Shown here is a 600-nucleotide part of an RNA from Porphyridium purpureum, a member of the family "Eukaryotic small subunit ribosomal RNA". The organism belongs to Porphyridium, within Eukaryota. The match comes from Rfam's covariance-model search (1720 bits). Its Rfam clan is "SSU clan".

RNA sequence: UACCUGGUUGAUCCUGCCAGUUAUGAUAUGCUUGUCUCAAAGAUUAAGCCAUGCAUGUGUAAGUAUAAACCUUUAUACGGUGAAACUGCGAAUGGCUCAUUAAAACAGUCAUAAUUUACUUGAUAGUAGCUAUUACUUGGAUACCCCUGGUAAUUCUAGAGCUAAUACAUGCGCACACAUCCGACUGCGGGAGGAUGGUAUUUAUUGGCCGCAACCAACCGGGCGUGCCCGUUUUGGUGAGUCACAGUAACUUUUCGGAUCGCGUGCUUCGGCGGCGACGUUUCAUUCAAAUUUCUGCCCUAUCAACUUUCGACGGUAGGGUAGUGGCCUACCGUGGUGUUAACGGGUAACGGAGAAUUAGGGUUCGAUUCCGGAGAGGGAGCCUGAGAAACGGCUACCACAUCCAAGGAAGGCAGCAGGCGCGCAAAUUACCCAAUCCUGACUCAGGGAGGUAGUGACAAGAAAUAUCGAUAGGCGAGUCAUUUGGCUCGGCUUUUUGGAAUGAGAACAGUUUAAAACACUUAUCGAGUAUCCAUUGGAGGGCAAGUCUGGUGCCAGCAGCCGCGGUAAUUCCAGCUCCAAUAGCGUAUAUAAAAGUUG
Numbered sequence: 001u002a003c004c005u006g007g008u009u010g011a012u013c014c015u016g017c018c019a020g021u022u023a024u025g026a027u028a029u030g031c032u033u034g035u036c037u038c039a040a041a042g043a044u045u046a047a048g049c050c051a052u053g054c055a056u057g058u059g060u061a062a063g064u065a066u067a068a069a070c071c072u073u074u075a076u077a078c079g080g081u082g083a084a085a086c087u088g089c090g091a092a093u094g095g096c097u098c099a100u101u102a103a104a105a106c107a108g109u110c111a112u113a114a115u116u117u118a119c120u121u122g123a124u125a126g127u128a129g130c131u132a133u134u135a136c137u138u139g140g141a142u143a144c145c146c147c148u149g150g151u152a153a154u155u156c157u158a159g160a161g162c163u164a165a166u167a168c169a170u171g172c173g174c175a176c177a178c179a180u181c182c183g184a185c186u187g188c189g190g191g192a193g194g195a196u197g198g199u200a201u202u203u204a205u206u207g208g209c210c211g212c213a214a215c216c217a218a219c220c221g222g223g224c225g226u227g228c229c230c231g232u233u234u235u236g237g238u239g240a241g242u243c244a245c246a247g248u249a250a251c252u253u254u255u256c257g258g259a260u261c262g263c264g265u266g267c268u269u270c271g272g273c274g275g276c277g278a279c280g281u282u283u284c285a286u287u288c289a290a291a292u293u294u295c296u297g298c299c300c301u302a303u304c305a306a307c308u309u310u311c312g313a314c315g316g317u318a319g320g321g322u323a324g325u326g327g328c329c330u331a332c333c334g335u336g337g338u339g340u341u342a343a344c345g346g347g348u349a350a351c352g353g354a355g356a357a358u359u360a361g362g363g364u365u366c367g368a369u370u371c372c373g374g375a376g377a378g379g380g381a382g383c384c385u386g387a388g389a390a391a392c393g394g395c396u397a398c399c400a401c402a403u404c405c406a407a408g409g410a411a412g413g414c415a416g417c418a419g420g421c422g423c424g425c426a427a428a429u430u431a432c433c434c435a436a437u438c439c440u441g442a443c444u445c446a447g448g449g450a451g452g453u454a455g456u457g458a459c460a461a462g463a464a465a466u467a468u469c470g471a472u473a474g475g476c477g478a479g480u481c482a483u484u485u486g487g488c489u490c491g492g493c494u495u496u497u498u499g500g501a502a503u504g505a506g507a508a509c510a511g512u513u514u515a516a517a518a519c520a521c522u523u524a525u526c527g528a529g530u531a532u533c534c535a536u537u538g539g540a541g542g543g544c545a546a547g548u549c550u551g552g553u554g555c556c557a558g559c560a561g562c563c564g565c566g567g568u569a570a571u572u573c574c575a576g577c578u579c580c581a582a583u584a585g586c587g588u589a590u591a592u593a594a595a596a597g598u599u600g
Stems, first nucleotide, its partner, number of pairs: 004020005022593003026590007035463003041456001042423001048421003052418003057089002062087003069081002096376003106297003111292002115290002121285003136171001138169002145161001147159004178197005185190001202250006214238004222229002260278004265274003299347003306338003313335008351373004355366004378399002381396003401412001403410002429454001431453003437449005469499003473494002476491006506526002508523001510522003536582006549576004558565002